[Rfam]
RNA: S10-Clostridia ribosomal protein leader
RNA sequence: UGAUAGCUAUGAAGCGUGAGGUUGCUGCCGCAACAAAAUAUAUAUAAGAAACGGCAGGUUUUCCGCGGAGCGAAUGUUGAUGGCGGGUAAUACAGAUACGAUGUAUUCCGCAAGAAUAUUAACGACAA
Numbered sequence: 001u002g003a004u005a006g007c008u009a010u011g012a013a014g015c016g017u018g019a020g021g022u023u024g025c026u027g028c029c030g031c032a033a034c035a036a037a038a039u040a041u042a043u044a045u046a047a048g049a050a051a052c053g054g055c056a057g058g059u060u061u062u063c064c065g066c067g068g069a070g071c072g073a074a075u076g077u078u079g080a081u082g083g084c085g086g087g088u089a090a091u092a093c094a095g096a097u098a099c100g101a102u103g104u105a106u107u108c109c110g111c112a113a114g115a116a117u118a119u120u121a122a123c124g125a126c127a128a
Base pairs, nucleotide, nucleotide: 014066015065016064018063019062020061021060025057026056027055028054029053075127076126077125078124083111084110085109086108